[Rfam]
RNA sequence: ACUGUGGAGUGUACCAGAACUUGUGAGUAGUGAGUUACUUGUAACCACAAAAGCAUACAUGGUGAAGCAGUAA
Numbered sequence: 001a002c003u004g005u006g007g008a009g010u011g012u013a014c015c016a017g018a019a020c021u022u023g024u025g026a027g028u029a030g031u032g033a034g035u036u037a038c039u040u041g042u043a044a045c046c047a048c049a050a051a052a053g054c055a056u057a058c059a060u061g062g063u064g065a066a067g068c069a070g071u072a073a
Stems, first nucleotide, its partner, number of pairs: 001071005009060005022055003030048003034045002
Rfam assigns this 73-nucleotide RNA sequence to the family "RAGATH-18 RNA".
The base pairs follow the family's consensus structure, which is taken from published work.